[Rfam]
RNA sequence: CCGUGCUAAGUGGGGAGCUAGCGGCACCCUGUACUCGCAAUCCGCUAUAGCGAGGCUGAAUUCCCAAUCGAGGUGGUCAGAUUUAUGGUCUGCCUUAAGGGAUUGGUGUUGACGCUUAGGUCCUGCGCAACAGAAACCCAUGAAUCCUGUCAGGUCCGGAAGGAAGCAGCAGUAAGUGGUCAAUUCUGUGUGCCGUGGGGUUACCGGAGCCGAGCCAUGAACUUAAGUAACGCAUAGGUCUGUUCCAUCGACUGCGGGUGCACGG
Numbered sequence: 001c002c003g004u005g006c007u008a009a010g011u012g013g014g015g016a017g018c019u020a021g022c023g024g025c026a027c028c029c030u031g032u033a034c035u036c037g038c039a040a041u042c043c044g045c046u047a048u049a050g051c052g053a054g055g056c057u058g059a060a061u062u063c064c065c066a067a068u069c070g071a072g073g074u075g076g077u078c079a080g081a082u083u084u085a086u087g088g089u090c091u092g093c094c095u096u097a098a099g100g101g102a103u104u105g106g107u108g109u110u111g112a113c114g115c116u117u118a119g120g121u122c123c124u125g126c127g128c129a130a131c132a133g134a135a136a137c138c139c140a141u142g143a144a145u146c147c148u149g150u151c152a153g154g155u156c157c158g159g160a161a162g163g164a165a166g167c168a169g170c171a172g173u174a175a176g177u178g179g180u181c182a183a184u185u186c187u188g189u190g191u192g193c194c195g196u197g198g199g200g201u202u203a204c205c206g207g208a209g210c211c212g213a214g215c216c217a218u219g220a221a222c223u224u225a226a227g228u229a230a231c232g233c234a235u236a237g238g239u240c241u242g243u244u245c246c247a248u249c250g251a252c253u254g255c256g257g258g259u260g261c262a263c264g265g
Base pairs, nucleotide, nucleotide: 001265002264003263004262005261006260009057010056011055012030013029014028015027017025018024019023034054035053036052037051038050063258064257065256072249073248074247075246076245078242079241080240081239082238083237084236085235086234087233091229092228095226096225097224098223099222103219105216106215107214114210115209116208117207119205120204121203122199123198124197125196126195127194128190129189131188132187133186134185135184138179139178140177141176147172148171149170150169155164156163157162

This 265-nucleotide sequence from Cerasibacillus terrae belongs to the Rfam family "Bacterial large signal recognition particle RNA".
The signal recognition particle (SRP) is a universally conserved ribonucleoprotein involved in the co-translational targeting of proteins to membranes.
By type it is a non-coding RNA gene.
The organism belongs to Cerasibacillus, within Bacteria.
The family's consensus secondary structure is taken from published work.
Its family is annotated with SRP-dependent cotranslational protein targeting to membrane, signal sequence recognition and signal recognition particle, plasma membrane targeting in the Gene Ontology.